[Rfam]
RNA: L31-Actinobacteria ribosomal protein leader
RNA sequence: CUGGUUCCGGUUCACGUCCCCGAUCGGUGGCGACCCGGCGACC
Numbered sequence: 001c002u003g004g005u006u007c008c009g010g011u012u013c014a015c016g017u018c019c020c021c022g023a024u025c026g027g028u029g030g031c032g033a034c035c036c037g038g039c040g041a042c043c
Stems, first nucleotide, its partner, number of pairs: 003043003007038004015032004020027002